[Rfam]
RNA: mir-34 microRNA precursor family
Organism: Dendroctonus ponderosae
RNA sequence: UACACGGUGGCAGUGUGGUUAGCUGGUUGUGAAAUUCAACCACGACCACUAUCCAUACUUCCCUCGUGUG
Numbered sequence: 001u002a003c004a005c006g007g008u009g010g011c012a013g014u015g016u017g018g019u020u021a022g023c024u025g026g027u028u029g030u031g032a033a034a035u036u037c038a039a040c041c042a043c044g045a046c047c048a049c050u051a052u053c054c055a056u057a058c059u060u061c062c063c064u065c066g067u068g069u070g
Stems, first nucleotide, its partner, number of pairs: 002069005009062002012059007020051003024048008